[Rfam]
RNA sequence: GGAAGGGUGACCGACCGUGGGGAGGAAGCGUGGAGCGUAAACCGUGAGCCGAUGAACAAGAAUCGGAUAUGAGGCACUGCCAAGCAGGGCGAGCGGGCCAAAAGCCGCGAAGCUCUUGUGGCCAAGGCGAAGUGGUGUAAAUCCGGCGGUUGUGCGGCGAAGGAGUGUGUUC
Numbered sequence: 001g002g003a004a005g006g007g008u009g010a011c012c013g014a015c016c017g018u019g020g021g022g023a024g025g026a027a028g029c030g031u032g033g034a035g036c037g038u039a040a041a042c043c044g045u046g047a048g049c050c051g052a053u054g055a056a057c058a059a060g061a062a063u064c065g066g067a068u069a070u071g072a073g074g075c076a077c078u079g080c081c082a083a084g085c086a087g088g089g090c091g092a093g094c095g096g097g098c099c100a101a102a103a104g105c106c107g108c109g110a111a112g113c114u115c116u117u118g119u120g121g122c123c124a125a126g127g128c129g130a131a132g133u134g135g136u137g138u139a140a141a142u143c144c145g146g147c148g149g150u151u152g153u154g155c156g157g158c159g160a161a162g163g164a165g166u167g168u169g170u171u172c
Stems, first nucleotide, its partner, number of pairs: 001016002005012002028172001030170003036163001042157005047151005063146006074138003078130001080129001084128002087115004093108004
RNA: Group II catalytic intron D1-D4-3